[Rfam]
RNA sequence: CCCGGUUCGCCGGGACGAAAUGUGGGUUCCGCGGCCGUCGGCCGCGCACGCCUGAAUCGCAAG
Numbered sequence: 001c002c003c004g005g006u007u008c009g010c011c012g013g014g015a016c017g018a019a020a021u022g023u024g025g026g027u028u029c030c031g032c033g034g035c036c037g038u039c040g041g042c043c044g045c046g047c048a049c050g051c052c053u054g055a056a057u058c059g060c061a062a063g
Stems, first nucleotide, its partner, number of pairs: 001014005016059003024053004
This 63-nucleotide sequence from Halorarum salinum belongs to the Rfam family "eL15-Euryarchaeota ribosomal protein leader". Taxonomically the source falls in Halorarum (Archaea, Methanobacteriati, Halobacteriales, Haloferacaceae).